[Rfam]
RNA: FMN riboswitch aptamer (RFN element)
RNA sequence: AUAUAACUUCAGGGCGAGGCGAAAUUCCUCACCGGUGGUAGUAAAUUCAACGAUUGAAUUUAGAGCCCACGAGCGCCAUCGCUUUUUAAGCUUUGGGUCAAGCAGAUCAGGUCACUUGCAAAAGAAAUCCUGAGCCGACAGUUAAAGUCUGGAUGAAAGAAGUUAUAC
Numbered sequence: 001a002u003a004u005a006a007c008u009u010c011a012g013g014g015c016g017a018g019g020c021g022a023a024a025u026u027c028c029u030c031a032c033c034g035g036u037g038g039u040a041g042u043a044a045a046u047u048c049a050a051c052g053a054u055u056g057a058a059u060u061u062a063g064a065g066c067c068c069a070c071g072a073g074c075g076c077c078a079u080c081g082c083u084u085u086u087u088a089a090g091c092u093u094u095g096g097g098u099c100a101a102g103c104a105g106a107u108c109a110g111g112u113c114a115c116u117u118g119c120a121a122a123a124g125a126a127a128u129c130c131u132g133a134g135c136c137g138a139c140a141g142u143u144a145a146a147g148u149c150u151g152g153a154u155g156a157a158a159g160a161a162g163u164u165a166u167a168c
Stems, first nucleotide, its partner, number of pairs: 003166008017029003031148002033137002035070004065135002073103002107133005139151003
Dot-bracket structure: ..((((((((......(((.......))).[[((((((..........................[[))))..((...........................))...(((((.................)))))]])).(((.....]]))).......))))))))..